[Rfam]
RNA sequence: CUCGUCCGUCACGUGGACGCCCCUGACCAUCCGGACGCGGUCCCGGCUACGCUGGCGGCGUGCGUCCACCGCGGACUGUUCCGUGAAGGGCGCAAAGCCGACAGCCGUCGCACUCCAGGGAGCCCCUUAAUG
Numbered sequence: 001c002u003c004g005u006c007c008g009u010c011a012c013g014u015g016g017a018c019g020c021c022c023c024u025g026a027c028c029a030u031c032c033g034g035a036c037g038c039g040g041u042c043c044c045g046g047c048u049a050c051g052c053u054g055g056c057g058g059c060g061u062g063c064g065u066c067c068a069c070c071g072c073g074g075a076c077u078g079u080u081c082c083g084u085g086a087a088g089g090g091c092g093c094a095a096a097g098c099c100g101a102c103a104g105c106c107g108u109c110g111c112a113c114u115c116c117a118g119g120g121a122g123c124c125c126c127u128u129a130a131u132g
Stems, first nucleotide, its partner, number of pairs: 061094004066089002097111002100109003
Rfam assigns this 132-nucleotide sequence from Streptomyces sp. to the family "Streptomyces-metH RNA". The source organism's lineage runs through Bacteria, Actinomycetota, Actinomycetes, Kitasatosporales and Streptomyces. The match comes from Rfam's covariance-model search (93 bits).